[Rfam]
Rfam assigns this 92-nucleotide RNA sequence from Rhizobium sp. Root1212 to the family "Rhizobiales sRNA Atu_Ti1".
On this family, see Wilms et al., RNA Biol 2012: "Deep sequencing uncovers numerous small RNAs on all four replicons of the plant pathogen Agrobacterium tumefaciens".
It scores 68 bits against the family's covariance model.
RNA sequence: GUCCACCCAGCGGCGGACCAUAGCCAAAGGCCUGUCAUGGCCAUGGCUGCAGCCGGCCGACGGCGCGUCGCCAUGAUGCCCAAGCCGGCUGC
Numbered sequence: 001g002u003c004c005a006c007c008c009a010g011c012g013g014c015g016g017a018c019c020a021u022a023g024c025c026a027a028a029g030g031c032c033u034g035u036c037a038u039g040g041c042c043a044u045g046g047c048u049g050c051a052g053c054c055g056g057c058c059g060a061c062g063g064c065g066c067g068u069c070g071c072c073a074u075g076a077u078g079c080c081c082a083a084g085c086c087g088g089c090u091g092c
Base pairs, nucleotide, nucleotide: 001018002017003016004015023047024046025045026044031039049092050091051090052089053088054087055086056085057084063081065079066078067077068076069075